Shown here is a 127-nucleotide sequence from Paenalicyclobacillus ferrooxydans, a member of the family "c-di-AMP riboswitch aptamer (ydaO/yuaA leader)".
Lineage of the source: Bacteria > Bacillati > Bacilli > Caryophanales > Paenalicyclobacillus.
[Rfam]
RNA sequence: UGGACAAAAAUUCCGAACUCCAGAAAUGGAGGCGGGGGACGCAUUUUUGGGGCGAAUCUGAAUUUCAGAUGGGAGAGCCCAAUCCCUAGCCCGUCAACUAACCCCGCAGGAACAAAGGGGCAAUGGU
Numbered sequence: 001u002g003g004a005c006a007a008a009a010a011u012u013c014c015g016a017a018c019u020c021c022a023g024a025a026a027u028g029g030a031g032g033c034g035g036g037g038g039a040c041g042c043a044u045u046u047u048u049g050g051g052g053c054g055a056a057u058c059u060g061a062a063u064u065u066c067a068g069a070u071g072g073g074a075g076a077g078c079c080c081a082a083u084c085c086c087u088a089g090c091c092c093g094u095c096a097a098c099u100a101a102c103c104c105c106g107c108a109g110g111a112a113c114a115a116a117g118g119g120g121c122a123a124u125g126g127u
Base pairs, nucleotide, nucleotide: 011112012111013110014109018031019030020029032107033106034105035104036103037102042049043048050092051091052090058068059067060066061065071086072085073084074083
Dot-bracket structure: ..........((((...(((........)))((((((....((....))(((.....((((...))))..((((........))))...))).........)))))).))))...............